[Rfam]
RNA sequence: AGCUGCCCCUGCAUGGUGGCCUCUGCCCGAACCGGCCCUGGCGUACUUCCCCAACGCCAGGUCCGCAAUCUCGGACAGGGACCUCCAUGCAAGGGCGGGCACAC
Numbered sequence: 001a002g003c004u005g006c007c008c009c010u011g012c013a014u015g016g017u018g019g020c021c022u023c024u025g026c027c028c029g030a031a032c033c034g035g036c037c038c039u040g041g042c043g044u045a046c047u048u049c050c051c052c053a054a055c056g057c058c059a060g061g062u063c064c065g066c067a068a069u070c071u072c073g074g075a076c077a078g079g080g081a082c083c084u085c086c087a088u089g090c091a092a093g094g095g096c097g098g099g100c101a102c103a104c
Base pairs, nucleotide, nucleotide: 010091011090012089013088014087015086016085018083019082021080022079023078024077025076027074028073029072030071033065034064035063037061038060039059040058041057042056043055044054
The record is a 104-nucleotide RNA from Mycobacterium antarcticum, which matches "mraW RNA" in Rfam. The family has 45 seed sequences and 851 matches in Rfam 15.1.